[Rfam]
RNA: Small nucleolar RNA SNORA24
Organism: Nannospalax galili
RNA sequence: UUCCAUUUAUUUUUGGGACCUGUGGCAGUCUCUCUUCCUACCCAUGGAAGAGCACAUUCUUGCUUAUUGGCAAAGCUGUCACCAUUUAAUUGGUAUCAGAUUCUGACUUGCACAAGUUUCAUUG
Numbered sequence: 001u002u003c004c005a006u007u008u009a010u011u012u013u014u015g016g017g018a019c020c021u022g023u024g025g026c027a028g029u030c031u032c033u034c035u036u037c038c039u040a041c042c043c044a045u046g047g048a049a050g051a052g053c054a055c056a057u058u059c060u061u062g063c064u065u066a067u068u069g070g071c072a073a074a075g076c077u078g079u080c081a082c083c084a085u086u087u088a089a090u091u092g093g094u095a096u097c098a099g100a101u102u103c104u105g106a107c108u109u110g111c112a113c114a115a116g117u118u119u120c121a122u123u124g
Stems, first nucleotide, its partner, number of pairs: 002048005015034004020028003061121002067115003070111004076099003081094004